[Rfam]
A member of the RNA family "Plant signal recognition particle RNA" from Nelumbo nucifera, 306 nucleotides long. Pairs were carried over by alignment from the consensus structure, which is taken from published work. The literature on the family includes a 2000 paper in Science by Batey et al., "Crystal structure of the ribonucleoprotein core of the signal recognition particle". Rfam classes the family as a non-coding RNA gene. Its Rfam clan is "SRP clan".
RNA sequence: GCCGAGCUCGGUAGCGUGAGCUUGUAACCCUGAGCGGGGGCAUCAAGAUGGUCGUACAUAAACUCGAUCCGACGGGUGGGAUCUGUAGAGGCUUGACCCGGUUCGCCCGGUUCCAAGUAAGGAGUUGGGCCAUGCGAUUCGGGCGAAGGCUCGGGUUUCAUGGUCCUUAGAACGGAGGGCACCGCGUCAGGCUGGUUUCACAGAGCAGCGACAACCUCCCGCUCCCGUCGGUGGAAGGAUAACGAAUCGUUGCCUUUCUGUCCCACUGAUGCCUUAGGAUCCGAGUUCAAUCGGACGGCCAUCUUU
Dot-bracket structure: ((((((((((......)))))))....(((.....))))))...((((((((((..(.(..(((((.(((.(.((..(((((..(.(.(((.(.....(((((((.((..(((((.(...(((((.((((((((.(((((((((....))))))))).))))))))(....).(((((......(((....(((......)))....)))....))))).)))))...)..)))))))....)))))))..))))))..))))).......)).).)))..)))))...)..)..)))))))))).